Record summary
The family of this 439-nucleotide RNA sequence from Xenopus laevis is "Vertebrate telomerase RNA". Pairs were carried over by alignment from the consensus structure, which is taken from published work. Telomerase is a ribonucleoprotein reverse transcriptase that synthesises telomeric DNA. Telomerase RNAs differ greatly in sequence and structure between vertebrates, ciliates and yeasts, but they share a 5' pseudoknot structure close to the template sequence. Vertebrate telomerase RNAs have a 3' H/ACA snoRNA-like domain. On this family, see Antal et al., Nucleic Acids Res 2002: "Analysis of the structure of human telomerase RNA in vivo". Its family is annotated with telomere maintenance via telomerase, telomerase activity and telomerase catalytic core complex in the Gene Ontology. Lineage of the source: Eukaryota > Deuterostomia > Sarcopterygii > Xenopus > Xenopus.

Nucleotides: 439
Base pairs, nucleotide, nucleotide: 006169007168008167010165011164012163013162014161015160016159017158018157020155021154022153023152061117062116063115064114065113075109076108077107078106079105080104081103082102083101092147093146094145095144096143097142098140099139100138173350174349176347177346178345179344210329211328212327213326224319225318226317227316228315229314230313236309237308238307239306240305257282258281259280260279261278263277264276265275266274284296285295286294287293362431363430364429365428366426368424369423370422371421386418387417388416389415390414394409395408396407397406
Number, partner (000 for none) and nucleotide at each position: 001000a002000g003000a004000c005000a006169g007168u008167g009000a010165g011164a012163a013162c014161g015160g016159a017158g018157g019000u020155g021154u022153c023152u024000a025000c026000u027000a028000g029000g030000c031000u032000a033000a034000c035000c036000c037000u038000a039000a040000u041000a042000c043000a044000c045000a046000g047000g048000c049000u050000u051000c052000a053000g054000g055000g056000c057000g058000a059000u060000g061117g062116c063115u064114c065113u066000u067000c068000g069000c070000g071000g072000a073000g074000g075109u076108g077107c078106c079105u080104g081103u082102u083101g084000u085000u086000u087000u088000a089000c090000u091000u092147g093146c094145u095144g096143a097142c098140u099139u100138u101083c102082a103081g104080c105079g106078g107077g108076c109075a110000c111000g112000g113065a114064g115063a116062g117061c118000a119000a120000g121000u122000g123000u124000a125000g126000g127000c128000g129000c130000g131000g132000a133000c134000u135000a136000a137000a138100a139099a140098a141000c142097g143096u144095c145094a146093g147092c148000u149000g150000g151000g152023a153022g154021a155020c156000u157018c158017c159016u160015c161014c162013g163012u164011u165010c166000g167008c168007a169006c170000a171000g172000c173350c174349c175000u176347a177346c178345c179344u180000g181000c182000u183000c184000c185000u186000c187000g188000c189000u190000u191000u192000g193000c194000c195000u196000u197000a198000g199000c200000g201000c202000c203000c204000c205000g206000g207000g208000u209000u210329u211328u212327c213326u214000c215000c216000g217000u218000c219000g220000a221000a222000u223000g224319c225318a226317c227316c228315u229314g230313g231000c232000g233000c234000u235000c236309c237308c238307c239306g240305g241000u242000c243000u244000g245000u246000c247000c248000g249000u250000a251000u252000g253000g254000g255000g256000c257282c258281g259280c260279g261278g262000u263277c264276g265275g266274c267000a268000u269000c270000a271000u272000c273000u274266g275265c276264u277263g278261u279260c280259g281258c282257g283000a284296a285295g286294a287293g288000u289000u290000c291000g292000u293287c294286u295285c296284u297000g298000u299000u300000a301000g302000c303000c304000c305240u306239u307238g308237g309236g310000a311000g312000c313230c314229c315228g316227g317226g318225u319224g320000c321000g322000g323000a324000g325000u326213g327212g328211a329210g330000a331000g332000u333000c334000c335000g336000g337000g338000u339000c340000u341000g342000g343000g344179g345178g346177g347176u348000c349174g350173g351000g352000a353000g354000a355000a356000c357000a358000a359000a360000a361000g362431g363430g364429g365428g366426c367000g368424c369423g370422c371421u372000g373000g374000u375000g376000c377000g378000u379000a380000g381000g382000c383000u384000c385000g386418g387417c388416a389415u390414g391000c392000u393000g394409u395408c396407u397406c398000u399000u400000a401000g402000u403000u404000g405000u406397g407396g408395g409394a410000u411000a412000c413000g414390c415389g416388u417387g418386u419000u420000c421371a422370g423369c424368g425000a426366g427000g428365c429364c430363c431362c432000c433000g434000a435000c436000a437000u438000g439000u